[Rfam]
RNA sequence: GUGCAUAUGGCUUUUAUGGGUGGUGGCUCAUUCCCUUUAAAGAAAGGGGGUGAGCGUAUGACGGUAUUCGAAACCAUUUUCUUGAUGAUCUCUUUCGCAACACUAAUUGUAGCUAUACUGUCAUUUCAUCAAAAAAAAUAACCAUCCAUAGCCUGACAAGCAUUUAGGAUGGUUAUUUUUCUGUCUUUUGCGAGUCGCCCCCUUAAGGGCUAUGCACUAACCGUUUGGUGUACCAGCACCAGACG
Numbered sequence: 001g002u003g004c005a006u007a008u009g010g011c012u013u014u015u016a017u018g019g020g021u022g023g024u025g026g027c028u029c030a031u032u033c034c035c036u037u038u039a040a041a042g043a044a045a046g047g048g049g050g051u052g053a054g055c056g057u058a059u060g061a062c063g064g065u066a067u068u069c070g071a072a073a074c075c076a077u078u079u080u081c082u083u084g085a086u087g088a089u090c091u092c093u094u095u096c097g098c099a100a101c102a103c104u105a106a107u108u109g110u111a112g113c114u115a116u117a118c119u120g121u122c123a124u125u126u127c128a129u130c131a132a133a134a135a136a137a138a139u140a141a142c143c144a145u146c147c148a149u150a151g152c153c154u155g156a157c158a159a160g161c162a163u164u165u166a167g168g169a170u171g172g173u174u175a176u177u178u179u180u181c182u183g184u185c186u187u188u189u190g191c192g193a194g195u196c197g198c199c200c201c202c203u204u205a206a207g208g209g210c211u212a213u214g215c216a217c218u219a220a221c222c223g224u225u226u227g228g229u230g231u232a233c234c235a236g237c238a239c240c241a242g243a244c245g
Stems, first nucleotide, its partner, number of pairs: 001217005007211001008197006015150008024140001028053003032049005060122007074087001097113002160181001162179001199209003222245010
This 245-nucleotide RNA sequence from Gracilibacillus dipsosauri belongs to the Rfam family "BsrG". Gene Ontology terms of the family: autolysis and toxin activity. From the family's description: bsrE, bsrG and bsrH pair through intermolecular interactions with antisense sRNAs. They form type I toxin/antitoxin system that includes an mRNA encoding for a short, toxic peptide (bsrE, bsrG and bsrH) and an antitoxin that is comprised of an antisense RNA. bsrG encodes a 39-amino-acid toxin, and the 180 nucleotide antisense sRNA called SR4 acts as the antitoxin (they overlap by 123 nucleotides). SR4 interaction with the 3'UTR of bsrG RNA promotes bsrG degradation and inhibits its translation. BsrG interferes with cell envelope biosynthesis, causes membrane invaginations and delocalisation of the cell wall synthesis and initiates autolysis. bsrE RNA encodes 30 amino-acid toxin peptide. Its antitoxin gene, SR5 overlaps by 112 nucleotides at the 3' end of bsrE. SR5 also overlaps bsrG from nucleotide 163 to 52 (Rfam overlap check). The antitoxin SR5 promotes bsrE degradation but unlike SR4 it does not directly inhibits toxin mRNA translation.